[Rfam]
RNA sequence: AAACAGUUCAUACAAAAGACUCGUAUAUUCCCGAGGUUAUGGCUUAGGAAGUCUCUACCUGCUAUCCGUAAAUUAGCAGACUACGAGGUAGUGUUUUGGUUUU
Numbered sequence: 001a002a003a004c005a006g007u008u009c010a011u012a013c014a015a016a017a018g019a020c021u022c023g024u025a026u027a028u029u030c031c032c033g034a035g036g037u038u039a040u041g042g043c044u045u046a047g048g049a050a051g052u053c054u055c056u057a058c059c060u061g062c063u064a065u066c067c068g069u070a071a072a073u074u075a076g077c078a079g080a081c082u083a084c085g086a087g088g089u090a091g092u093g094u095u096u097u098g099g100u101u102u103u
Stems, first nucleotide, its partner, number of pairs: 018089001020087006029049003033045003059079006
Dot-bracket structure: .................(.((((((...(((.(((.......))).))).........((((((.........))))))..)))))).)..............
Purine riboswitch aptamer: a 103-nucleotide sequence from Clostridium sp. DL-VIII. The family's consensus secondary structure is taken from published work. The organism belongs to Clostridium, within Bacteria.